RNA sequence: GAAGGAGAUUUUAGCUCCCUGGCCUUUCGAUAUCCAACUUACGAGAAAGGGAUAUCAAACCGGCACAAGCUGCGUUGGUAAAGAGCCUAAGGUGGCGAGCGUUUUGUUAAAAGGCGGAGAUACCUCCGUUGGGU
Numbered sequence: 001g002a003a004g005g006a007g008a009u010u011u012u013a014g015c016u017c018c019c020u021g022g023c024c025u026u027u028c029g030a031u032a033u034c035c036a037a038c039u040u041a042c043g044a045g046a047a048a049g050g051g052a053u054a055u056c057a058a059a060c061c062g063g064c065a066c067a068a069g070c071u072g073c074g075u076u077g078g079u080a081a082a083g084a085g086c087c088u089a090a091g092g093u094g095g096c097g098a099g100c101g102u103u104u105u106g107u108u109a110a111a112a113g114g115c116g117g118a119g120a121u122a123c124c125u126c127c128g129u130u131g132g133g134u
Stems, first nucleotide, its partner, number of pairs: 001028005029056006038049003061133001063107003067103002069096002072093002077087003113130006
RNA: Group II catalytic intron D1-D4-2
Organism: Acidithrix ferrooxidans